Source information: The record is a 103-nucleotide RNA sequence from Cocos nucifera, which matches "MIR394 microRNA precursor family" in Rfam. A reference for the family is Jones-Rhoades and Bartel (2004), "Computational identification of plant microRNAs and their targets, including a stress-induced miRNA", Mol Cell. Taxonomically the source falls in Cocos (Eukaryota, Viridiplantae, commelinids, Attaleinae). Gene Ontology terms of the family: miRNA-mediated post-transcriptional gene silencing and RISC complex.
[Rfam]
RNA sequence: CUUACAGAGUUCAUUGGCAUUCUGUCCACCUCCAUCAGGGCCAACCUUCUAUGGGGUGGAGGUAGAAAUGGAGGUGGGCAACCUGCCAAGGGAGCUCUGUUGG
Dot-bracket structure: ..........(..((((((...(((((((((((((................................)))))))))))))...))))))...)..........